[Rfam]
RNA sequence: GAGUUACUCCUCACUAGCGAGGUUAAUUGGUUCAGCCAAGCAGCCGAAGCGAAAGCAAGUCUGAAUAGGGCGUUUAGUUAGUGGGGGUAGACGCGAAACCCGGUGAUCUACCCAUGGCCAGGUUGAAGCUCUGGUAACACAGAGUGGAGGACCGAACCAGUUGACGUUGAAAAGUCUUUGGAUGAGCUGUGGGUAGGGGUGAAAGGCUAAUCAAACUGGGAAAUAGCUCGUU
Numbered sequence: 001g002a003g004u005u006a007c008u009c010c011u012c013a014c015u016a017g018c019g020a021g022g023u024u025a026a027u028u029g030g031u032u033c034a035g036c037c038a039a040g041c042a043g044c045c046g047a048a049g050c051g052a053a054a055g056c057a058a059g060u061c062u063g064a065a066u067a068g069g070g071c072g073u074u075u076a077g078u079u080a081g082u083g084g085g086g087g088u089a090g091a092c093g094c095g096a097a098a099c100c101c102g103g104u105g106a107u108c109u110a111c112c113c114a115u116g117g118c119c120a121g122g123u124u125g126a127a128g129c130u131c132u133g134g135u136a137a138c139a140c141a142g143a144g145u146g147g148a149g150g151a152c153c154g155a156a157c158c159a160g161u162u163g164a165c166g167u168u169g170a171a172a173a174g175u176c177u178u179u180g181g182a183u184g185a186g187c188u189g190u191g192g193g194u195a196g197g198g199g200u201g202a203a204a205g206g207c208u209a210a211u212c213a214a215a216c217u218g219g220g221a222a223a224u225a226g227c228u229c230g231u232u
Base pairs, nucleotide, nucleotide: 005089006088007087009086010085011084012083013082014081015080016079017078018077021045022044023043024042027039028038029037049056050055059071060070061069062068092230093229095227099220100219101218102217103216104215108196109195110194111193112192113191114190115189116188117187118186119184121153122152123151124150128145129144130143131142132141133140157181158180159179163176164175165174198208199207200206
RNA: Bacterial large subunit ribosomal RNA, nucleotides 608 to 839
Organism: Croceimicrobium hydrocarbonivorans